[Rfam]
This 123-nucleotide RNA sequence from Jaculus jaculus belongs to the Rfam family "Small nucleolar RNA SNORA26".
Gene Ontology terms of the family: RNA processing and nucleolus.
On this family, see Huttenhofer et al., EMBO J 2001: "RNomics: an experimental approach that identifies 201 candidates for novel, small, non-messenger RNAs in mouse".
Rfam's curators write: The snoRNA HBI-6 belong to the H/ACA family of snoRNAs, guiding the pseudouridylation of position U4522 if the 28S rRNA. HBI-6 is the human orthologue of mouse MBI-6 snoRNA.
RNA sequence: AUGCCCAUUCUCUUGUCACUACAGUCGUUCAAGAGGCUAACACAAAAGGGUAAAGGGAAUCUACACAAAACCCACAGAAAAGAUGGCAAACCUCCUCUCUGGAUUCUAUCUGGAGUCAUAGAU
Numbered sequence: 001a002u003g004c005c006c007a008u009u010c011u012c013u014u015g016u017c018a019c020u021a022c023a024g025u026c027g028u029u030c031a032a033g034a035g036g037c038u039a040a041c042a043c044a045a046a047a048g049g050g051u052a053a054a055g056g057g058a059a060u061c062u063a064c065a066c067a068a069a070a071c072c073c074a075c076a077g078a079a080a081a082g083a084u085g086g087c088a089a090a091c092c093u094c095c096u097c098u099c100u101g102g103a104u105u106c107u108a109u110c111u112g113g114a115g116u117c118a119u120a121g122a123u
Base pairs, nucleotide, nucleotide: 002052003051004050005049006048008047009046011044015041016040018038020036022033061115062114064112065111072102073101074100076098077097078096081093082092